A member of the RNA family "let-7 microRNA precursor family" from Python bivittatus, 88 nucleotides long. The base pairs follow the family's consensus structure, which was predicted with RNAalifold. Its family is annotated with RISC complex and miRNA-mediated post-transcriptional gene silencing in the Gene Ontology. On this family, see Rougvie, Nat Rev Genet 2001: "Control of developmental timing in animals". Rfam's curators write: This family represents the microRNAs (miRNA) let-7 and mir-98. let-7 was identified from a study of developmental timing in C. elegans, and was later shown to be part of a much larger class of non-coding RNAs termed miRNAs.
[Rfam]
RNA sequence: CCAGGGUGAGGUAGUAAGUUGUAUUGUUGUGGGGUAGGGAUUUGUGCCCCAAAUCAGAGAUAACUAUACAACUUACUACUUUCCCUGU
Numbered sequence: 001c002c003a004g005g006g007u008g009a010g011g012u013a014g015u016a017a018g019u020u021g022u023a024u025u026g027u028u029g030u031g032g033g034g035u036a037g038g039g040a041u042u043u044g045u046g047c048c049c050c051a052a053a054u055c056a057g058a059g060a061u062a063a064c065u066a067u068a069c070a071a072c073u074u075a076c077u078a079c080u081u082u083c084c085c086u087g088u
Stems, first nucleotide, its partner, number of pairs: 002087005008082017026064002032050003